The family of this 187-nucleotide RNA from Zingiber officinale is "MIR159 microRNA precursor family".
A reference for the family is Jones-Rhoades and Bartel (2004), "Computational identification of plant microRNAs and their targets, including a stress-induced miRNA", Mol Cell.
Taxonomically the source falls in Zingiber (Eukaryota, Mesangiospermae, Liliopsida, commelinids).
A search with the family's covariance model found it, with a score of 94 bits.
The family has 66 seed sequences and 3,649 matches in Rfam 15.1.
Its family is annotated with RISC complex and miRNA-mediated post-transcriptional gene silencing in the Gene Ontology.
RNA sequence: CUAGGGAAGAAGGAGCUCCCUUCAGUCCAAGCAUGGAAUGGAAGGGAGAGAAUAGUCUCCCGCAUCAUUCACUCGUUCACAUGGUAGCUCAAGCUCUACCAUUGUGUUUGAAUGAAUGAGUCGGCAGCUGAUUCAAACCCACAGUCAUCCGGUGAGUGGACUGAAGGAAGCUCUUUCAAACACUUUU
Numbered sequence: 001c002u003a004g005g006g007a008a009g010a011a012g013g014a015g016c017u018c019c020c021u022u023c024a025g026u027c028c029a030a031g032c033a034u035g036g037a038a039u040g041g042a043a044g045g046g047a048g049a050g051a052a053u054a055g056u057c058u059c060c061c062g063c064a065u066c067a068u069u070c071a072c073u074c075g076u077u078c079a080c081a082u083g084g085u086a087g088c089u090c091a092a093g094c095u096c097u098a099c100c101a102u103u104g105u106g107u108u109u110g111a112a113u114g115a116a117u118g119a120g121u122c123g124g125c126a127g128c129u130g131a132u133u134c135a136a137a138c139c140c141a142c143a144g145u146c147a148u149c150c151g152g153u154g155a156g157u158g159g160a161c162u163g164a165a166g167g168a169a170g171c172u173c174u175u176u177c178a179a180a181c182a183c184u185u186u187u
Stems, first nucleotide, its partner, number of pairs: 013173005019167002023163007036150001057127002060124003066118004074110001